The family of this 598-nucleotide part of an RNA from Mixia osmundae is "Eukaryotic small subunit ribosomal RNA". Gene Ontology terms of the family: ribosome and structural constituent of ribosome. Pairs were carried over by alignment from the consensus structure, which is taken from published work.
[Rfam]
RNA sequence: AGUCAUAUGCUUGUCUCAAAGAUUAAGCCAUGCAUGUCUAAGUGUAAACAAAUUUAUACAGUGAAACUGCGAAUGGCUCAUUAAAUCAGUUAUAGUUUAUUUGAUGGUUCCUUGCUACAUGGAUAACUGUGGUAAUUCUAGAGCUAAUACAUGCUGAAAAGCCCCGACUGGCAACGGAAGGGGUGUAUUUAUUAGAUACAAAAUCAACGCUUCUUUUAGCAGCGCUUGGUGAAUCAUGAUAACUUGUCGAAUCGCACGGCCUCGAGCUGGCGAUGCUUCAUUCAAAUAUCUGCCCUAUCAACUUUCGAUGGUAAGGUAGUGGCUUACCAUGGUGACGACGGGUAACGGGAAAUAAGGGUUUGGUUCCGGAGAGAGGGCCUGAGAAACGGCCCUCAGAUCUAAGGAGUGCAGCAGGCGCGCAAAUUAUCCCAUCCCGAUUCGGGGAGAUAGUGACAAUAAAUAACAAUGUAGGGCUCUUUUGGGUCUUGCAAUUGGAAUGAGUACAAUUUAAAUCCCUUAACGAGGAUCAAUUGGAGGGCAAGUCUGGUGCCAGCAGCCGCGGUAAUUCCAGCUCCAAUAGCGUAUAUUAAAGUUGUUG
Numbered sequence: 001a002g003u004c005a006u007a008u009g010c011u012u013g014u015c016u017c018a019a020a021g022a023u024u025a026a027g028c029c030a031u032g033c034a035u036g037u038c039u040a041a042g043u044g045u046a047a048a049c050a051a052a053u054u055u056a057u058a059c060a061g062u063g064a065a066a067c068u069g070c071g072a073a074u075g076g077c078u079c080a081u082u083a084a085a086u087c088a089g090u091u092a093u094a095g096u097u098u099a100u101u102u103g104a105u106g107g108u109u110c111c112u113u114g115c116u117a118c119a120u121g122g123a124u125a126a127c128u129g130u131g132g133u134a135a136u137u138c139u140a141g142a143g144c145u146a147a148u149a150c151a152u153g154c155u156g157a158a159a160a161g162c163c164c165c166g167a168c169u170g171g172c173a174a175c176g177g178a179a180g181g182g183g184u185g186u187a188u189u190u191a192u193u194a195g196a197u198a199c200a201a202a203a204u205c206a207a208c209g210c211u212u213c214u215u216u217u218a219g220c221a222g223c224g225c226u227u228g229g230u231g232a233a234u235c236a237u238g239a240u241a242a243c244u245u246g247u248c249g250a251a252u253c254g255c256a257c258g259g260c261c262u263c264g265a266g267c268u269g270g271c272g273a274u275g276c277u278u279c280a281u282u283c284a285a286a287u288a289u290c291u292g293c294c295c296u297a298u299c300a301a302c303u304u305u306c307g308a309u310g311g312u313a314a315g316g317u318a319g320u321g322g323c324u325u326a327c328c329a330u331g332g333u334g335a336c337g338a339c340g341g342g343u344a345a346c347g348g349g350a351a352a353u354a355a356g357g358g359u360u361u362g363g364u365u366c367c368g369g370a371g372a373g374a375g376g377g378c379c380u381g382a383g384a385a386a387c388g389g390c391c392c393u394c395a396g397a398u399c400u401a402a403g404g405a406g407u408g409c410a411g412c413a414g415g416c417g418c419g420c421a422a423a424u425u426a427u428c429c430c431a432u433c434c435c436g437a438u439u440c441g442g443g444g445a446g447a448u449a450g451u452g453a454c455a456a457u458a459a460a461u462a463a464c465a466a467u468g469u470a471g472g473g474c475u476c477u478u479u480u481g482g483g484u485c486u487u488g489c490a491a492u493u494g495g496a497a498u499g500a501g502u503a504c505a506a507u508u509u510a511a512a513u514c515c516c517u518u519a520a521c522g523a524g525g526a527u528c529a530a531u532u533g534g535a536g537g538g539c540a541a542g543u544c545u546g547g548u549g550c551c552a553g554c555a556g557c558c559g560c561g562g563u564a565a566u567u568c569c570a571g572c573u574c575c576a577a578u579a580g581c582g583u584a585u586a587u588u589a590a591a592g593u594u595g596u597u598g
Stems, first nucleotide, its partner, number of pairs: 001588003005585007014458001016456001020451001021418001027416003031413003036070002041068003048062002077371003087292003092287002096285002102280003118153004127143002130140003161184005168177002189242006203230004211221001213219001252273004257269004294342003301333003308330008346368004350361004373394006396407001398405002424449001426448003432444005464494003467490010501521002503518001505517001531577006544571004553560002